[Rfam]
RNA sequence: CGGUUGGGAGGUCCGCCGAUGUGGACCGCUGGGGUCUCGUACCCCGCCCGGCCGC
Numbered sequence: 001c002g003g004u005u006g007g008g009a010g011g012u013c014c015g016c017c018g019a020u021g022u023g024g025a026c027c028g029c030u031g032g033g034g035u036c037u038c039g040u041a042c043c044c045c046g047c048c049c050g051g052c053c054g055c
Stems, first nucleotide, its partner, number of pairs: 001054003005050004010027007030046005
DUF3800-VI RNA: a 55-nucleotide RNA sequence. Rfam's curators put it in the seed alignment.